[Rfam]
RNA: c-di-AMP riboswitch aptamer (ydaO/yuaA leader)
RNA sequence: UCAUAGCGAGCACCGCAGGCAGGAGCGGGGGACCCAGGUACGUCGCCGGUCCGGAACGGCAGCGCAGCCAGCGCGGCCGGUUCGGAACGGCUUGGGGUGAAGCCAACGGCGAAACGUUUCUUCAGACGUUCCGCCCCGGCCGGGCACUCACCGCCCGAACCCGACAGCUCACCUCGCAGGCGUCGGUGAGAAGGAAC
Numbered sequence: 001u002c003a004u005a006g007c008g009a010g011c012a013c014c015g016c017a018g019g020c021a022g023g024a025g026c027g028g029g030g031g032a033c034c035c036a037g038g039u040a041c042g043u044c045g046c047c048g049g050u051c052c053g054g055a056a057c058g059g060c061a062g063c064g065c066a067g068c069c070a071g072c073g074c075g076g077c078c079g080g081u082u083c084g085g086a087a088c089g090g091c092u093u094g095g096g097g098u099g100a101a102g103c104c105a106a107c108g109g110c111g112a113a114a115c116g117u118u119u120c121u122u123c124a125g126a127c128g129u130u131c132c133g134c135c136c137c138g139g140c141c142g143g144g145c146a147c148u149c150a151c152c153g154c155c156c157g158a159a160c161c162c163g164a165c166a167g168c169u170c171a172c173c174u175c176g177c178a179g180g181c182g183u184c185g186g187u188g189a190g191a192a193g194g195a196a197c
Base pairs, nucleotide, nucleotide: 001024002023025177026176027175028174029173030172035094036093037092038091039090095162096161097160103139104138142156143155144154145153